[Rfam]
RNA: mir-8315 microRNA precursor family
Organism: Pristionchus pacificus
RNA sequence: AGCCUCAGACAUUCUUGUAUGUCGCGAAUUGAAGCGAUACCAGUCUGGAUGAGGCUGA
Numbered sequence: 001a002g003c004c005u006c007a008g009a010c011a012u013u014c015u016u017g018u019a020u021g022u023c024g025c026g027a028a029u030u031g032a033a034g035c036g037a038u039a040c041c042a043g044u045c046u047g048g049a050u051g052a053g054g055c056u057g058a
Stems, first nucleotide, its partner, number of pairs: 001056007010047002014043002017040003022037004